[Rfam]
RNA sequence: UCUUUAUUUCCCAUACUCUCUCACCGGGCAGAGAGGUGAGAGAGUCUGUGAAAUGAAGAGA
Number, nucleotide and partner (000 for none) at each position: 001u059002c058003u057004u056005u055006a054007u053008u000009u000010c050011c000012c048013a047014u000015a045016c044017u043018c000019u041020c040021u039022c038023a000024c000025c000026g000027g000028g000029c000030a000031g000032a000033g000034a000035g000036g000037u000038g022039a021040g020041a019042g000043a017044g016045u015046c000047u013048g012049u000050g010051a000052a000053a007054u006055g005056a004057a003058g002059a001060g000061a000
The record is a 61-nucleotide sequence from Pristionchus pacificus, which matches "mir-8364 microRNA precursor family" in Rfam.
Taxonomically the source falls in Pristionchus (Eukaryota, Metazoa, Ecdysozoa, Chromadorea).